Shown here is a 122-nucleotide RNA sequence from Varibaculum cambriense, a member of the family "FMN riboswitch aptamer (RFN element)".
NCBI's taxonomy places the organism under Bacteria, Actinomycetota, Actinomycetales, Actinomycetaceae, Varibaculum cambriense.
[Rfam]
RNA sequence: GGGUGCUCCGGGGUCGGUGAAAAUCCGAACCGGCGGUAAAGUCCGCGACCCGCUCACUAUGGGCGGCUGAACCGGUGAAAUUCCGGUACCGACGGUUAUAGUCCGGAUGAGAGGCAGCACGG
Numbered sequence: 001g002g003g004u005g006c007u008c009c010g011g012g013g014u015c016g017g018u019g020a021a022a023a024u025c026c027g028a029a030c031c032g033g034c035g036g037u038a039a040a041g042u043c044c045g046c047g048a049c050c051c052g053c054u055c056a057c058u059a060u061g062g063g064c065g066g067c068u069g070a071a072c073c074g075g076u077g078a079a080a081u082u083c084c085g086g087u088a089c090c091g092a093c094g095g096u097u098a099u100a101g102u103c104c105g106g107a108u109g110a111g112a113g114g115c116a117g118c119a120c121g122g
Stems, first nucleotide, its partner, number of pairs: 003120005008113001015027003029102002031091002033046004041089002050066002071087005093105003